[Rfam]
A member of the RNA family "Group II catalytic intron D1-D4-7" from Dechloromonas sp., 148 nucleotides long. Rfam describes the family as follows. Group II introns are found in rRNA, tRNA and mRNA of organelles in fungi, plants and protists, and also in mRNA in bacteria.
RNA sequence: CCGGGGUAUCAGCACCCCGUAGCCUAGGAGCAGUGCGUCACUGGUAACGGUGAGGUGCUAAGCGCUCUGACAAUGUAGCCACCUUUAGGGUACGCCAUACCCGCGAGGGGUUCUGGCGUGAUAUCGAAAGUUGCAUUCGAUUGAGGCG
Numbered sequence: 001c002c003g004g005g006g007u008a009u010c011a012g013c014a015c016c017c018c019g020u021a022g023c024c025u026a027g028g029a030g031c032a033g034u035g036c037g038u039c040a041c042u043g044g045u046a047a048c049g050g051u052g053a054g055g056u057g058c059u060a061a062g063c064g065c066u067c068u069g070a071c072a073a074u075g076u077a078g079c080c081a082c083c084u085u086u087a088g089g090g091u092a093c094g095c096c097a098u099a100c101c102c103g104c105g106a107g108g109g110g111u112u113c114u115g116g117c118g119u120g121a122u123a124u125c126g127a128a129a130g131u132u133g134c135a136u137u138c139g140a141u142u143g144a145g146g147c148g
Stems, first nucleotide, its partner, number of pairs: 002019006027068005032059005038053006081091004093118004101108002123141006